BsrG: a 269-nucleotide RNA from Scopulibacillus darangshiensis. Rfam's curators write: bsrE, bsrG and bsrH pair through intermolecular interactions with antisense sRNAs. They form type I toxin/antitoxin system that includes an mRNA encoding for a short, toxic peptide (bsrE, bsrG and bsrH) and an antitoxin that is comprised of an antisense RNA. bsrG encodes a 39-amino-acid toxin, and the 180 nucleotide antisense sRNA called SR4 acts as the antitoxin (they overlap by 123 nucleotides). SR4 interaction with the 3'UTR of bsrG RNA promotes bsrG degradation and inhibits its translation. A reference for the family is Jahn et al. (2012), "BsrG/SR4 from Bacillus subtilis--the first temperature-dependent type I toxin-antitoxin system", Mol Microbiol. The source organism's lineage runs through Bacteria, Bacillati, Bacilli, Sporolactobacillaceae and Scopulibacillus.
[Rfam]
Nucleotides: 269
Stems, first nucleotide, its partner, number of pairs: 001237004006232003010209004015204001017154004022149004027143001029141002034056003038053004063125002066122004077090002099117004165184002210224004243269010
Number, partner (000 for none) and nucleotide at each position: 001237a002236c003235a004234a005000u006232a007231g008230a009000u010209c011208g012207g013206c014000c015204u016000a017154c018153u019152c020151a021000a022149a023148g024147g025146g026000g027143g028000g029141c030140u031000g032000g033000u034056u035055c036054a037000c038053u039052c040051c041050c042000a043000u044000a045000a046000u047000a048000a049000g050041g051040g052039g053038g054036u055035g056034a057000u058000g059000c060000c061000u062000u063125g064124a065000g066122u067121g068120u069119g070000u071000u072000u073000g074000a075000a076000g077090u078089a079000u080000u081000g082000a083000c084000g085000u086000u087000a088000a089078u090077g091000a092000u093000c094000g095000c096000c097000u098000u099117u100116g101115g102114c103000u104000c105000u106000u107000u108000a109000g110000u111000u112000g113000c114102g115101u116100u117099g118000a119069u120068g121067c122066a123000g124064u125063c126000g127000a128000a129000c130000a131000a132000a133000c134000g135000a136000a137000a138000a139000u140030a141029g142000a143027c144000c145000u146025c147024c148023c149022u150000c151020u152019g153018a154017g155000c156000u157000u158000g159000g160000c161000a162000g163000g164000c165184c166183a167000u168000u169000a170000a171000g172000g173000g174000a175000a176000g177000u178000c179000u180000a181000u182000c183166u184165g185000u186000u187000u188000u189000a190000a191000g192000a193000u194000a195000u196000u197000u198000c199000u200000u201000g202000c203000g204015g205000a206013g207012c208011c209010g210224c211223c212222c213221c214000u215000c216000u217000u218000g219000a220000u221213g222212g223211g224210g225000u226000a227000c228000g229000g230008u231007c232006u233000a234004u235003u236002g237001u238000c239000c240000c241000a242000g243269g244268a245267a246266u247265c248264g249263c250262c251261g252260a253000u254000a255000g256000a257000g258000a259000u260252u261251c262250g263249g264248u265247g266246g267245u268244u269243c
The family's consensus secondary structure was predicted with WAR.